[Rfam]
RNA sequence: GGGUCGGUAGCUCAGUGGUAGAGCAGCGGACUUUUAAUCCGUUGGCCGUGGGUUCGACCCCCACCCGACCCA
Number, nucleotide and partner (000 for none) at each position: 001g071002g070003g069004u068005c067006g066007g065008u000009a000010g024011c023012u022013c021014a000015g000016u000017g000018g000019u000020a000021g013022a012023g011024c010025a000026g042027c041028g040029g039030a038031c000032u000033u000034u000035u000036a000037a000038u030039c029040c028041g027042u026043u000044g000045g000046c000047c000048g064049u063050g062051g061052g060053u000054u000055c000056g000057a000058c000059c000060c052061c051062c050063a049064c048065c007066c006067g005068a004069c003070c002071c001072a000
This 72-nucleotide RNA from Chitinilyticum piscinae belongs to the Rfam family "tRNA".
Its family is annotated with triplet codon-amino acid adaptor activity in the Gene Ontology.
A search with the family's covariance model found it, with a score of 77 bits.
Lineage of the source: Bacteria > Pseudomonadota > Betaproteobacteria > Chitinibacteraceae > Chitinilyticum.
The family's RNA type in Rfam is transfer RNA.